[Rfam]
Description: mir-9128 microRNA precursor family: a 94-nucleotide RNA sequence from Equus asinus. The family's consensus secondary structure was predicted with RNAalifold.
RNA sequence: GGGAGCCGGGUGUGGUGCUUGGCCCUGCUUCCGUGGGUUUCACUCUCGUUGGUGCUGGUGCUCGCUUGGCCCUGCACCCUCUCCCUUCACCCUU
Dot-bracket structure: (((.(..(((.(.(..(...(..((.......((((((.((((.((....)).).))).))))))..)).).....).).).)))..).)))..